About this RNA: Small nucleolar RNA Z107/R87: a 107-nucleotide sequence from Quercus lobata. It is annotated as a C/D-box small nucleolar RNA. For this family Rfam cites "Identification of 66 box C/D snoRNAs in Arabidopsis thaliana: extensive gene duplications generated multiple isoforms predicting new ribosomal RNA 2'-O-methylation sites" (Barneche et al., J Mol Biol, 2001).
RNA sequence: GAUCACAAUGAUGUCCACAUGAAAUUCAAGCCCAACAGACCGGAAAGCAAGCUCCUCUACACUCUAGAGAACUUUGCAUGUUGACAACCCCAAUGACCUGAGCGAUC
Numbered sequence: 001g002a003u004c005a006c007a008a009u010g011a012u013g014u015c016c017a018c019a020u021g022a023a024a025u026u027c028a029a030g031c032c033c034a035a036c037a038g039a040c041c042g043g044a045a046a047g048c049a050a051g052c053u054c055c056u057c058u059a060c061a062c063u064c065u066a067g068a069g070a071a072c073u074u075u076g077c078a079u080g081u082u083g084a085c086a087a088c089c090c091c092a093a094u095g096a097c098c099u100g101a102g103c104g105a106u107c
Base pairs, nucleotide, nucleotide: 001107002106003105004104006102

Gene Ontology terms of the family: nucleolus and RNA processing. The organism belongs to Quercus, within Eukaryota.